[Rfam]
Nucleotides: 111
Stems, first nucleotide, its partner, number of pairs: 006105007013061004019053006028041005063096001065094004071088005
Number, partner (000 for none) and nucleotide at each position: 001000a002000u003000c004000a005000c006105c007104g008103c009102c010101g011100g012099a013061c014060a015059g016058g017000g018000a019053c020052g021051g022050u023049c024048u025000c026000g027000a028041g029040g030039g031038u032037u033000g034000g035000g036000g037032a038031g039030c040029c041028c042000a043000g044000u045000g046000a047000c048024a049023g050022a051021u052020c053019g054000c055000g056000a057000c058016u059015c060014u061013g062000a063096g064000a065094u066093g067092g068091u069000g070000u071088c072087g073086g074085g075084u076000c077000a078000u079000a080000g081000g082000g083000a084075g085074c086073c087072c088071g089000g090000c091068g092067u093066c094065g095000c096063c097000g098000c099012u100011c101010c102009g103008g104007c105006g106000a107000a108000g109000g110000a111000g

The family of this 111-nucleotide RNA is "Actinomyces-1 RNA".
By type it is a small RNA.